This 78-nucleotide sequence belongs to the Rfam family "L4-Archaeoglobi ribosomal protein leades". On this family, see Eckert and Weinberg, BMC Microbiol 2020: "Discovery of 20 novel ribosomal leader candidates in bacteria and archaea".
[Rfam]
RNA sequence: CUGAUUACGACGCAUGGGCCGACGUUCGUGCAACGAGCCCUCUCCACCUGCUAACGCAGGUGGAUGCGCCAUUAUCAG
Numbered sequence: 001c002u003g004a005u006u007a008c009g010a011c012g013c014a015u016g017g018g019c020c021g022a023c024g025u026u027c028g029u030g031c032a033a034c035g036a037g038c039c040c041u042c043u044c045c046a047c048c049u050g051c052u053a054a055c056g057c058a059g060g061u062g063g064a065u066g067c068g069c070c071a072u073u074a075u076c077a078g
Stems, first nucleotide, its partner, number of pairs: 001078005009070001011068003016040003023035004043064009